RNA sequence: CUGCGGGGAUGAUCUGCCUGAACUCUCUCUUGCUGAUGGGCCGCUGAGGAAGCUCCUGACAGGCUCUGAGCGGC
Numbered sequence: 001c002u003g004c005g006g007g008g009a010u011g012a013u014c015u016g017c018c019u020g021a022a023c024u025c026u027c028u029c030u031u032g033c034u035g036a037u038g039g040g041c042c043g044c045u046g047a048g049g050a051a052g053c054u055c056c057u058g059a060c061a062g063g064c065u066c067u068g069a070g071c072g073g074c
Base pairs, nucleotide, nucleotide: 001073002072003071004070